[Rfam]
RNA sequence: UCGCCCACAAUGCGUUCAACGGUUUCAACACGGAUGUGGUUCGGUAUCGAGUGUGAGCGGACACUAAACACCGGCCGGUCGGCUUCAUGCCGAAGCCCUUCGCAGGGGCAUCCUUGCUGGAGCCGUAACCGGCGCUGUGGACGUCAUCACACCCGGCUCCUCCUUUGGUCUCCUCGCGCUAACCCCGUAGCGUGUGGUUUUUAGCGGGCUCCAGGCCCGCUUUUUUUU
Numbered sequence: 001u002c003g004c005c006c007a008c009a010a011u012g013c014g015u016u017c018a019a020c021g022g023u024u025u026c027a028a029c030a031c032g033g034a035u036g037u038g039g040u041u042c043g044g045u046a047u048c049g050a051g052u053g054u055g056a057g058c059g060g061a062c063a064c065u066a067a068a069c070a071c072c073g074g075c076c077g078g079u080c081g082g083c084u085u086c087a088u089g090c091c092g093a094a095g096c097c098c099u100u101c102g103c104a105g106g107g108g109c110a111u112c113c114u115u116g117c118u119g120g121a122g123c124c125g126u127a128a129c130c131g132g133c134g135c136u137g138u139g140g141a142c143g144u145c146a147u148c149a150c151a152c153c154c155g156g157c158u159c160c161u162c163c164u165u166u167g168g169u170c171u172c173c174u175c176g177c178g179c180u181a182a183c184c185c186c187g188u189a190g191c192g193u194g195u196g197g198u199u200u201u202u203a204g205c206g207g208g209c210u211c212c213a214g215g216c217c218c219g220c221u222u223u224u225u226u227u228u
Stems, first nucleotide, its partner, number of pairs: 005168003019126009029116002032113006038076003044071002047068001051064004079093005096107004132148001172197002175194007203221008